[Rfam]
The record is a 134-nucleotide sequence from Chauna torquata, which matches "Small nucleolar RNA SNORA9" in Rfam.
RNA sequence: CCGCAAGCCUUCCAGCAUGGCGGGGCCUGGGGUGACCCUGUCCAUUCCUGCGGUGCUUGCGAGAGCAGCUCUGGGGUGGUUUGAGGCCUCCCCCUGCACCCCUCAGGGGGAGGCUAUAGAAAUCCCAAACACGG
Numbered sequence: 001c002c003g004c005a006a007g008c009c010u011u012c013c014a015g016c017a018u019g020g021c022g023g024g025g026c027c028u029g030g031g032g033u034g035a036c037c038c039u040g041u042c043c044a045u046u047c048c049u050g051c052g053g054u055g056c057u058u059g060c061g062a063g064a065g066c067a068g069c070u071c072u073g074g075g076g077u078g079g080u081u082u083g084a085g086g087c088c089u090c091c092c093c094c095u096g097c098a099c100c101c102c103u104c105a106g107g108g109g110g111a112g113g114c115u116a117u118a119g120a121a122a123u124c125c126c127a128a129a130c131a132c133g134g
Stems, first nucleotide, its partner, number of pairs: 003060006018044003023038003027034001072127005087113006094106003
Its family is annotated with RNA processing and nucleolus in the Gene Ontology. ACA9 is a member of the H/ACA class of snoRNA that guide the sites of modification of uridines to pseudouridines. Rfam 15.1 lists 1,202 matches to the family in 518 species. By type it is an H/ACA-box small nucleolar RNA.